[Rfam]
Small nucleolar RNA SNORD94: a 139-nucleotide RNA from Larimichthys crocea. Lineage of the source: Eukaryota > Metazoa > Eumetazoa > Acanthomorphata > Larimichthys. The base pairs follow the family's consensus structure, which was predicted with RNAalifold. Gene Ontology terms of the family: RNA processing and nucleolus. It scores 65 bits against the family's covariance model. Rfam 15.1 lists 802 matches to the family in 622 species.

RNA sequence: UCUGUGAUGAUGAGAGGCGCAGGGGUACGGACCUCAGCCAAUGAUGGGGGCUGAGUGCUGCUGCUGACGCUCUGAUUGGAGGACGAGUGGUUCACCGCCAGGCGAGCAGCAGCACGAUGCAGACGCCGGUCUGAACAGA
Numbered sequence: 001u002c003u004g005u006g007a008u009g010a011u012g013a014g015a016g017g018c019g020c021a022g023g024g025g026u027a028c029g030g031a032c033c034u035c036a037g038c039c040a041a042u043g044a045u046g047g048g049g050g051c052u053g054a055g056u057g058c059u060g061c062u063g064c065u066g067a068c069g070c071u072c073u074g075a076u077u078g079g080a081g082g083a084c085g086a087g088u089g090g091u092u093c094a095c096c097g098c099c100a101g102g103c104g105a106g107c108a109g110c111a112g113c114a115c116g117a118u119g120c121a122g123a124c125g126c127c128g129g130u131c132u133g134a135a136c137a138g139a
Base pairs, nucleotide, nucleotide: 001139002138003137004136005135